[Rfam]
A member of the RNA family "MIR854 microRNA precursor family", 221 nucleotides long. Rfam links the family to the GO terms miRNA-mediated post-transcriptional gene silencing and RISC complex. Rfam's curators put it in the seed alignment.

Nucleotides: 221
Base pairs, nucleotide, nucleotide: 001221002220003219004218011210013208014206015205016204017203018202019201020200021199022198023197024196025195
Number, partner (000 for none) and nucleotide at each position: 001221c002220g003219g004218a005000u006000g007000a008000g009000g010000a011210u012000a013208g014206g015205g016204a017203g018202g019201a020200g021199g022198a023197g024196u025195a026000u027000g028000a029000u030000a031000c032000g033000a034000g035000c036000a037000u038000g039000u040000a041000u042000c043000a044000u045000u046000u047000c048000a049000g050000u051000g052000a053000g054000c055000a056000c057000g058000u059000a060000c061000c062000u063000c064000c065000a066000g067000c068000g069000c070000g071000g072000g073000a074000g075000a076000g077000c078000a079000a080000g081000a082000g083000c084000u085000u086000g087000a088000g089000u090000g091000a092000a093000g094000c095000u096000c097000a098000u099000a100000g101000a102000a103000a104000c105000a106000a107000c108000a109000g110000u111000a112000a113000g114000u115000u116000g117000c118000a119000g120000a121000g122000g123000u124000g125000g126000u127000g128000c129000a130000a131000g132000a133000a134000a135000c136000a137000a138000g139000a140000u141000a142000g143000g144000c145000u146000a147000c148000u149000u150000a151000u152000c153000a154000a155000g156000u157000g158000c159000u160000u161000c162000a163000a164000a165000g166000c167000c168000a169000u170000c171000a172000c173000g174000u175000u176000u177000c178000u179000g180000a181000c182000g183000g184000a185000c186000a187000a188000g189000a190000u191000a192000a193000g194000c195025u196024g197023c198022u199021u200020c201019u202018c203017u204016u205015c206014u207000a208013c209000u210011a211000c212000a213000g214000c215000u216000a217000u218004u219003c220002c221001g